This 140-nucleotide RNA from Cedecea neteri belongs to the Rfam family "Yersinia sRNA 155(RyfD)". Taxonomically the source falls in Cedecea (Bacteria, Pseudomonadati, Gammaproteobacteria, Enterobacterales). The match comes from Rfam's covariance-model search (112 bits). The literature on the family includes a 2015 paper in PLoS Genet by Nuss et al., "Transcriptomic profiling of Yersinia pseudotuberculosis reveals reprogramming of the Crp regulon by temperature and uncovers Crp as a master regulator of small RNAs".
[Rfam]
RNA sequence: CAAGACGAUCCAGUGCGUGUCGCUCGCGCUUCAUAUAUUUCAGGUCAUUAACCUUGAAUAAUUGAGGGAUGACCUCAUUUAAUCUCCAGUAGCAAAUUUGACCUGUUUAUGGGAGGAGUUAUGCGUCUGGAUCGUCUUAC
Numbered sequence: 001c002a003a004g005a006c007g008a009u010c011c012a013g014u015g016c017g018u019g020u021c022g023c024u025c026g027c028g029c030u031u032c033a034u035a036u037a038u039u040u041c042a043g044g045u046c047a048u049u050a051a052c053c054u055u056g057a058a059u060a061a062u063u064g065a066g067g068g069a070u071g072a073c074c075u076c077a078u079u080u081a082a083u084c085u086c087c088a089g090u091a092g093c094a095a096a097u098u099u100g101a102c103c104u105g106u107u108u109a110u111g112g113g114a115g116g117a118g119u120u121a122u123g124c125g126u127c128u129g130g131a132u133c134g135u136c137u138u139a140c
Base pairs, nucleotide, nucleotide: 002138003137004136005135006134007133008132009131010130011129012128015126016125017124018123019122022119023118024043026041028039030037052067053066054065055064056063057062068079069078070077071076083116084115085114086113087112089110090109091108